RNA: nhaA-I RNA
RNA sequence: GGGUGCUCACACGCCGUGUGCAGCAGGCAAAGCGUCGGUCGGGCCGCCACG
Numbered sequence: 001g002g003g004u005g006c007u008c009a010c011a012c013g014c015c016g017u018g019u020g021c022a023g024c025a026g027g028c029a030a031a032g033c034g035u036c037g038g039u040c041g042g043g044c045c046g047c048c049a050c051g
Stems, first nucleotide, its partner, number of pairs: 005024003008020004033051003037048003